The family of this 61-nucleotide RNA sequence from Leptolyngbya sp. Heron Island J is "Plastid-psbN 5UTR RNA".
By type it is a cis-regulatory element.
Taxonomically the source falls in Leptolyngbya (Bacteria, Bacillati, Cyanobacteriota, Leptolyngbyales).
Rfam describes the family as follows. Plastid psbN is a non-coding RNA (ncRNA) recognised in plastids. It was reported as a conserved 11 stem-loop in the prime untranslated region (5UTR) of psbN genes.
It scores 56 bits against the family's covariance model.
RNA sequence: AAAUACUCCCAUUAAAGGAGUAGUACCCCAGCCGGGGGCGACUUUACCGUAUUCAGAGUUC
Dot-bracket structure: ................(((((.((.((.......)).)).)))))................